[Rfam]
RNA sequence: CUGCCGUCGGCGCGAGCCGGUGGGAUCGCUGUGCAGAAGUCAGCAGAAGGCAUAGUAGCUUCUUGGAACGAGCCAGGAGUAGUCGCC
Numbered sequence: 001c002u003g004c005c006g007u008c009g010g011c012g013c014g015a016g017c018c019g020g021u022g023g024g025a026u027c028g029c030u031g032u033g034c035a036g037a038a039g040u041c042a043g044c045a046g047a048a049g050g051c052a053u054a055g056u057a058g059c060u061u062c063u064u065g066g067a068a069c070g071a072g073c074c075a076g077g078a079g080u081a082g083u084c085g086c087c
Stems, first nucleotide, its partner, number of pairs: 004023008040047002049087003058080006
Shown here is an 87-nucleotide RNA from Pelagicoccus mobilis, a member of the family "Group II catalytic intron D1-D4-1". About the family: Group II introns are found in rRNA, tRNA and mRNA of organelles in fungi, plants and protists, and also in mRNA in bacteria. Gene Ontology term of the family: Group II intron splicing.